[Rfam]
About this RNA:
A member of the RNA family "pan motif" from Acetivibrio saccincola, 96 nucleotides long. The match comes from Rfam's covariance-model search (58 bits). The base pairs follow the family's consensus structure, which is taken from published work. The source organism's lineage runs through Bacteria, Bacillati, Acetivibrionales, Acetivibrionaceae and Acetivibrio.

RNA sequence: UAGGUGGUAUCAUAUUGAACCACACUAAUGGGAAUACUAAAAUUCUAAUAUACUUUUAUAACUGCUUUGAACCUAAUUUAGGACAAAGACAGGAAG
Numbered sequence: 001u002a003g004g005u006g007g008u009a010u011c012a013u014a015u016u017g018a019a020c021c022a023c024a025c026u027a028a029u030g031g032g033a034a035u036a037c038u039a040a041a042a043u044u045c046u047a048a049u050a051u052a053c054u055u056u057u058a059u060a061a062c063u064g065c066u067u068u069g070a071a072c073c074u075a076a077u078u079u080a081g082g083a084c085a086a087a088g089a090c091a092g093g094a095a096g
Stems, first nucleotide, its partner, number of pairs: 001027003004023005010018002062092003065088005072082002